[Rfam]
RNA sequence: AGAUGCCAGGGGCAAAAGGUCUAAGCCCACAUGAGCUUGCUCAUAGGUGGGUGAAAGACCUUAGGACCCGCCCCGAUAUGAGCAUAAAAGUGGGAUGAUAAUCCCACGAUAUGCGAAUAUUCGGUAGGAUUGUGGGAGUGCCGUAGCACGGAGCAAUCCGUAGGCAUCA
Numbered sequence: 001a002g003a004u005g006c007c008a009g010g011g012g013c014a015a016a017a018g019g020u021c022u023a024a025g026c027c028c029a030c031a032u033g034a035g036c037u038u039g040c041u042c043a044u045a046g047g048u049g050g051g052u053g054a055a056a057g058a059c060c061u062u063a064g065g066a067c068c069c070g071c072c073c074c075g076a077u078a079u080g081a082g083c084a085u086a087a088a089a090g091u092g093g094g095a096u097g098a099u100a101a102u103c104c105c106a107c108g109a110u111a112u113g114c115g116a117a118u119a120u121u122c123g124g125u126a127g128g129a130u131u132g133u134g135g136g137a138g139u140g141c142c143g144u145a146g147c148a149c150g151g152a153g154c155a156a157u158c159c160g161u162a163g164g165c166a167u168c169a
Base pairs, nucleotide, nucleotide: 002168003167004166005165006164007163010068011067013065016062017061018060019059020058021057022056026051027050028049029048030047031044032043033042034041035040073124074123075122076121077119078118079117082114083113084112085111090107091106092105093104094103095102096101127159128158129157130156131155132154133153138149139148140147141146
RNA: Clostridiales-1 RNA